[Rfam]
RNA sequence: GCCUAUCUGAAAUGUCGCACGGAUACCAGAAAACUAUAAUAAAUAACACUGGUCGACACGUAUCCUUUUUGUUGUGUAAAAAUGCAAUAAAGCAAGACUGAGUACGGUAGACGCCCUCGUAGGAAACUCGAGCGGCAGGAG
Numbered sequence: 001g002c003c004u005a006u007c008u009g010a011a012a013u014g015u016c017g018c019a020c021g022g023a024u025a026c027c028a029g030a031a032a033a034c035u036a037u038a039a040u041a042a043a044u045a046a047c048a049c050u051g052g053u054c055g056a057c058a059c060g061u062a063u064c065c066u067u068u069u070u071g072u073u074g075u076g077u078a079a080a081a082a083u084g085c086a087a088u089a090a091a092g093c094a095a096g097a098c099u100g101a102g103u104a105c106g107g108u109a110g111a112c113g114c115c116c117u118c119g120u121a122g123g124a125a126a127c128u129c130g131a132g133c134g135g136c137a138g139g140a141g
Stems, first nucleotide, its partner, number of pairs: 003110005014098003021065006068091009113136003117132001119129001121128002
RNA: lysM-TM7 RNA